[Rfam]
RNA sequence: CACAGUAAUCCCCUCACAACGGAUCGUUCGGCACGUACCUGCCGAUGAAAGGAUGAACA
Numbered sequence: 001c002a003c004a005g006u007a008a009u010c011c012c013c014u015c016a017c018a019a020c021g022g023a024u025c026g027u028u029c030g031g032c033a034c035g036u037a038c039c040u041g042c043c044g045a046u047g048a049a050a051g052g053a054u055g056a057a058c059a
Base pairs, nucleotide, nucleotide: 010052011051014048015047016046028045029044030043031042032041033040
Dot-bracket structure: .........((..(((...........((((((......)))))))))..)).......

The family of this 59-nucleotide sequence from Bifidobacterium animalis is "msiK RNA". The family's RNA type in Rfam is cis-regulatory element. The organism belongs to Bifidobacterium animalis subsp. lactis, within Bacteria. Pairs were carried over by alignment from the consensus structure, which is taken from published work.